[Rfam]
RNA sequence: UCCUUCCUUGUCUUGGGGAGCAGAAAUGUUCAAUGAACGUCUAGUGAGGACAUUGCUGCUGACACCAAAGAUAUAAUUAUCACCCCCGUUCGCAGAUCUUGCUUGGAUAAGCGUUCGGAAUUUUUGGAAAU
Numbered sequence: 001u002c003c004u005u006c007c008u009u010g011u012c013u014u015g016g017g018g019a020g021c022a023g024a025a026a027u028g029u030u031c032a033a034u035g036a037a038c039g040u041c042u043a044g045u046g047a048g049g050a051c052a053u054u055g056c057u058g059c060u061g062a063c064a065c066c067a068a069a070g071a072u073a074u075a076a077u078u079a080u081c082a083c084c085c086c087c088g089u090u091c092g093c094a095g096a097u098c099u100u101g102c103u104u105g106g107a108u109a110a111g112c113g114u115u116c117g118g119a120a121u122u123u124u125u126g127g128a129a130a131u
Stems, first nucleotide, its partner, number of pairs: 005019005020059004025054007037045002086118003093111001096108003